[Rfam]
Rfam assigns this 77-nucleotide RNA from Alligator mississippiensis to the family "Mammalian CPEB3 ribozyme". The organism belongs to Alligator, within Eukaryota. Gene Ontology term of the family: RNA nuclease activity. Pairs were carried over by alignment from the consensus structure, which is taken from published work.
RNA sequence: GGUUGGAAGUUUGAGGCCAUAGCAGAAGCACUCAUGGUGCAGCCCUGUCAAAUUCCAAUGAAUCUGUGAAUUCAGCU
Numbered sequence: 001g002g003u004u005g006g007a008a009g010u011u012u013g014a015g016g017c018c019a020u021a022g023c024a025g026a027a028g029c030a031c032u033c034a035u036g037g038u039g040c041a042g043c044c045c046u047g048u049c050a051a052a053u054u055c056c057a058a059u060g061a062a063u064c065u066g067u068g069a070a071u072u073c074a075g076c077u
Base pairs, nucleotide, nucleotide: 013045015044016043017042021077022076023075025073026072027071028040029039030038049066050065052063053062054061055060